[Rfam]
RNA sequence: GACUAGCGAUGAAGUGGAAGGUUGCUCGCAGUUUGAGGUAAUUUUCAUGGAGCAGUCCGCUGAAUCGGACGA
Dot-bracket structure: .............(((.((((...((((.....))))....)))))))......(((((......)))))..